RNA sequence: ACGGACAUGGAUGUCCGUGGAAUUAAGCAGAAGCGAGAUUUGUGUUAUGCACAAAUCUCGUCGUUAAAAAGCGUACAUGGAGGUACGCUUUUUAACAGGC
Numbered sequence: 001a002c003g004g005a006c007a008u009g010g011a012u013g014u015c016c017g018u019g020g021a022a023u024u025a026a027g028c029a030g031a032a033g034c035g036a037g038a039u040u041u042g043u044g045u046u047a048u049g050c051a052c053a054a055a056u057c058u059c060g061u062c063g064u065u066a067a068a069a070a071g072c073g074u075a076c077a078u079g080g081a082g083g084u085a086c087g088c089u090u091u092u093u094a095a096c097a098g099g100c
Stems, first nucleotide, its partner, number of pairs: 001018006034060011063096014